Shown here is a 92-nucleotide sequence from Clostridium celatum, a member of the family "pan motif". Lineage of the source: Bacteria > Bacillota > Eubacteriales > Clostridium > Clostridium celatum. Pairs were carried over by alignment from the consensus structure, which is taken from published work.
RNA sequence: UGGGUGGUAUUUUAAUUAAACCGCACCAAGAUAUAUUUGAAUUUUAAAGAUUAAAGAAAUAGCUCAUAUCAUAAGUUGAAUGGGACUAAAUA
Numbered sequence: 001u002g003g004g005u006g007g008u009a010u011u012u013u014a015a016u017u018a019a020a021c022c023g024c025a026c027c028a029a030g031a032u033a034u035a036u037u038u039g040a041a042u043u044u045u046a047a048a049g050a051u052u053a054a055a056g057a058a059a060u061a062g063c064u065c066a067u068a069u070c071a072u073a074a075g076u077u078g079a080a081u082g083g084g085a086c087u088a089a090a091u092a
Base pairs, nucleotide, nucleotide: 001028002027003026004024005023006022007021008020010019011018060088061087062086063084064083065082066081067080069079070078071077